[Rfam]
RNA sequence: UGGCUGUACGCCGAGGAGUUUACUGGCCGGUUGUUGUGAUCACUGUUGACUAAUCUGCUUACCGAAUUCCUCACAAUU
Number, nucleotide and partner (000 for none) at each position: 001u000002g000003g000004c000005u000006g000007u000008a000009c000010g000011c000012c000013g072014a071015g070016g069017a068018g067019u066020u065021u000022a000023c000024u000025g059026g058027c057028c000029g055030g054031u053032u052033g050034u049035u048036g047037u000038g000039a000040u000041c000042a000043c000044u000045g000046u000047u036048g035049a034050c033051u000052a032053a031054u030055c029056u000057g027058c026059u025060u000061a000062c000063c000064g000065a020066a019067u018068u017069c016070c015071u014072c013073a000074c000075a000076a000077u000078u000
Small nucleolar RNA snoR109: a 78-nucleotide RNA from Cannabis sativa. On this family, see Marker et al., Curr Biol 2002: "Experimental RNomics: identification of 140 candidates for small non-messenger RNAs in the plant Arabidopsis thaliana". By type it is an H/ACA-box small nucleolar RNA.